Overview
Rfam assigns this 140-nucleotide RNA sequence from Desulfosporosinus sp. I2 to the family "c-di-AMP riboswitch aptamer (ydaO/yuaA leader)". NCBI's taxonomy places the organism under Bacteria, Bacillota, Eubacteriales, Desulfitobacteriaceae, Desulfosporosinus. Gene Ontology terms of the family: regulation of gene expression and cyclic-di-AMP binding.
[Rfam]
RNA sequence: AAAGGUAAGAUGCUGAAUCUGAGUUUCAUAGGCUCAGAACGGGGGAUUUCAUGUGGGGUGAAUCAUGUUCAGAACAUGUAGGGCUUACACCUUUAGCCCGAAUCCGUCAACUAACCUCGUAAGCAAAGAAAGGUGGACAA
Numbered sequence: 001a002a003a004g005g006u007a008a009g010a011u012g013c014u015g016a017a018u019c020u021g022a023g024u025u026u027c028a029u030a031g032g033c034u035c036a037g038a039a040c041g042g043g044g045g046a047u048u049u050c051a052u053g054u055g056g057g058g059u060g061a062a063u064c065a066u067g068u069u070c071a072g073a074a075c076a077u078g079u080a081g082g083g084c085u086u087a088c089a090c091c092u093u094u095a096g097c098c099c100g101a102a103u104c105c106g107u108c109a110a111c112u113a114a115c116c117u118c119g120u121a122a123g124c125a126a127a128g129a130a131a132g133g134u135g136g137a138c139a140a
Stems, first nucleotide, its partner, number of pairs: 011125004018038009039120006049055001056105003064078004081099004